narK RNA: a 72-nucleotide sequence from Pseudomonas cavernae. The base pairs follow the family's consensus structure, which is taken from published work.

RNA sequence: GGCUCAGCUUUUGCUAAACAGCUGAUACAGGUAACCAAUGGCGGUUGCCUCCACACACGACAAAGACGUCGC
Number, nucleotide and partner (000 for none) at each position: 001g000002g000003c000004u000005c000006a000007g000008c000009u000010u000011u000012u000013g000014c000015u000016a000017a000018a000019c000020a000021g000022c000023u000024g000025a000026u000027a000028c000029a000030g049031g048032u047033a046034a045035c044036c043037a000038a000039u000040g000041g000042c000043g036044g035045u034046u033047g032048c031049c030050u000051c000052c000053a000054c000055a000056c000057a000058c000059g000060a000061c000062a000063a000064a000065g000066a000067c000068g000069u000070c000071g000072c000